[Rfam]
RNA sequence: GUCGCAUGCCCUCCUUGGGCGUUUCCUCCCUAGACUUGAGGCCGCCGCGUUCUCGCGAGCGGCCUUCUUUAUGUCCUGA
Numbered sequence: 001g002u003c004g005c006a007u008g009c010c011c012u013c014c015u016u017g018g019g020c021g022u023u024u025c026c027u028c029c030c031u032a033g034a035c036u037u038g039a040g041g042c043c044g045c046c047g048c049g050u051u052c053u054c055g056c057g058a059g060c061g062g063c064c065u066u067c068u069u070u071a072u073g074u075c076c077u078g079a
Stems, first nucleotide, its partner, number of pairs: 008020004040064006046057003
This 79-nucleotide RNA sequence from Alsobacter soli belongs to the Rfam family "Makes More Granules Regulator RNA (mmgR)". The match comes from Rfam's covariance-model search (66 bits).